[Rfam]
RNA sequence: UGGCGGGGACGCGACUGGCGGCAUCAGGGAUGGGAUAGACCAUCGGGAAGCUCGUCGUGGGGGUCGUCCGCCUGGGCCCGCCAC
Numbered sequence: 001u002g003g004c005g006g007g008g009a010c011g012c013g014a015c016u017g018g019c020g021g022c023a024u025c026a027g028g029g030a031u032g033g034g035a036u037a038g039a040c041c042a043u044c045g046g047g048a049a050g051c052u053c054g055u056c057g058u059g060g061g062g063g064u065c066g067u068c069c070g071c072c073u074g075g076g077c078c079c080g081c082c083a084c
Stems, first nucleotide, its partner, number of pairs: 003058004008053002011051002015047002017072005030043004061079005
Notes
Rfam assigns this 84-nucleotide sequence from Verrucosispora sioxanthis to the family "ZMP/ZTP riboswitch aptamer (pfl RNA motif)". The base pairs follow the family's consensus structure, which is taken from published work. Gene Ontology terms of the family: regulation of purine nucleotide biosynthetic process and one-carbon metabolic process.